Record summary
The family of this 98-nucleotide sequence from Streptococcus pyogenes is "S. pyogenes small RNA Spy490483c". On this family, see Patenge et al., BMC Genomics 2012: "Identification of novel growth phase- and media-dependent small non-coding RNAs in Streptococcus pyogenes M49 using intergenic tiling arrays". Rfam's curators put it in the seed alignment.
[Rfam]
RNA sequence: GUUCUCAGAUGUGAUUACUUCAAGUAAGCAGGCUAGAGACAUAACAAUCAGAAUAUUAAAGGAUGUUAUCACAGUUUUGUGAGCAGGGACCUAUUCGA
Numbered sequence: 001g002u003u004c005u006c007a008g009a010u011g012u013g014a015u016u017a018c019u020u021c022a023a024g025u026a027a028g029c030a031g032g033c034u035a036g037a038g039a040c041a042u043a044a045c046a047a048u049c050a051g052a053a054u055a056u057u058a059a060a061g062g063a064u065g066u067u068a069u070c071a072c073a074g075u076u077u078u079g080u081g082a083g084c085a086g087g088g089a090c091c092u093a094u095u096c097g098a
Stems, first nucleotide, its partner, number of pairs: 003039004007034002010032001012030002015027005051096005064085003069082005